Rfam assigns this 59-nucleotide RNA sequence from Lolliginicoccus lacisalsi to the family "Actino-pnp RNA". The organism belongs to Lolliginicoccus, within Bacteria.
RNA sequence: GUCGGUCCUCGGUAGUGGCCGCCGGAGCAUCGCUCCGGCCGCUUCGAUCGAAGGCCGCG
Dot-bracket structure: ..(((((.(((((...(((.((((((((...)))))))).)))...))))).)))))..